RNA sequence: UCCCACCAGGCUGUGGUUGCAGACACAUAUUUUUGUGUCCUAGUCCAAGGCAGACGCGGCCUAAGGGAUCCACGUAAGCUUGUGUGUGCGCACAUAAGCGAUCAUGGCGCGUCCUAGAAGUAAGUCGUACCGCCUGCUUUUCCUUUGGAGACGACCGACGUCUUCCAGGCGAGCGGAUUAGUCGUGAGGUCACUGCGGUGGCUCAAGCAAACGUCCCAGUGCGCUAGUGUGGGGUCAAAGACCAGGUCAGCUGGGGGGA
Numbered sequence: 001u002c003c004c005a006c007c008a009g010g011c012u013g014u015g016g017u018u019g020c021a022g023a024c025a026c027a028u029a030u031u032u033u034u035g036u037g038u039c040c041u042a043g044u045c046c047a048a049g050g051c052a053g054a055c056g057c058g059g060c061c062u063a064a065g066g067g068a069u070c071c072a073c074g075u076a077a078g079c080u081u082g083u084g085u086g087u088g089c090g091c092a093c094a095u096a097a098g099c100g101a102u103c104a105u106g107g108c109g110c111g112u113c114c115u116a117g118a119a120g121u122a123a124g125u126c127g128u129a130c131c132g133c134c135u136g137c138u139u140u141u142c143c144u145u146u147g148g149a150g151a152c153g154a155c156c157g158a159c160g161u162c163u164u165c166c167a168g169g170c171g172a173g174c175g176g177a178u179u180a181g182u183c184g185u186g187a188g189g190u191c192a193c194u195g196c197g198g199u200g201g202c203u204c205a206a207g208c209a210a211a212c213g214u215c216c217c218a219g220u221g222c223g224c225u226a227g228u229g230u231g232g233g234g235u236c237a238a239a240g241a242c243c244a245g246g247u248c249a250g251c252u253g254g255g256g257g258g259a
Stems, first nucleotide, its partner, number of pairs: 001259004006254004011250003014244005047230001049228001050060001053113006069107002074102001078099009105237001126223005131171005175216004184208002190201003

Record summary
Shown here is a 259-nucleotide sequence from Collinsella sp. zg1085, a member of the family "raiA RNA". Taxonomically the source falls in Collinsella (Bacteria, Bacillati, Actinomycetota, Coriobacteriaceae).